[Rfam]
RNA sequence: CCUUUCCUUGUCAUGGGGUGGUUUGGGAAGCUCAAUGAACGUGUAGUGAGAGACUCCCUGCUGACACCAUAACCAACACAUGCGCACCACCUGGACUCACGUUCAGACUACGGUGCAAUUUUUGGAAAC
Number, nucleotide and partner (000 for none) at each position: 001c000002c000003u000004u000005u000006c018007c017008u016009u015010g000011u000012c000013a000014u000015g009016g008017g007018g006019u000020g000021g061022u060023u000024u000025g000026g000027g056028a055029a000030g000031c052032u051033c050034a000035a000036u000037g000038a000039a047040c046041g000042u000043g000044u000045a000046g040047u039048g000049a000050g033051a032052g031053a000054c000055u028056c027057c000058c000059u000060g022061c021062u000063g000064a000065c000066a000067c000068c000069a000070u000071a000072a000073c000074c000075a000076a000077c000078a000079c000080a000081u000082g000083c000084g116085c115086a114087c113088c112089a000090c000091c106092u105093g104094g103095a102096c101097u000098c000099a000100c000101g096102u095103u094104c093105a092106g091107a000108c000109u000110a000111c000112g088113g087114u086115g085116c084117a000118a000119u000120u000121u000122u000123u000124g000125g000126a000127a000128a000129c000
The record is a 129-nucleotide RNA sequence from Collichthys lucidus, which matches "U4atac minor spliceosomal RNA" in Rfam.
The base pairs follow the family's consensus structure, which is taken from published work.
For this family Rfam cites "Evolution of spliceosomal snRNA genes in metazoan animals" (Marz et al., J Mol Evol, 2008).
Rfam's curators write: U4atac is an essential component of the minor U12-type spliceosome complex which is required for removal of the rarer class of eukaryotic introns (AT-AC, U12-type).